[Rfam]
Source information:
This 59-nucleotide sequence belongs to the Rfam family "msiK RNA". Pairs were carried over by alignment from the consensus structure, which is taken from published work. Rfam 15.1 lists 1,374 matches to the family in 1,364 species. It is annotated as a cis-regulatory element.
RNA sequence: AAAAAGACCUUCAUCCAACGGAACGUCGGGCACGUACCUGCCCGGAAGAAGGAGUAAAA
Dot-bracket structure: ........((((.((...........((((((......)))))))).))))........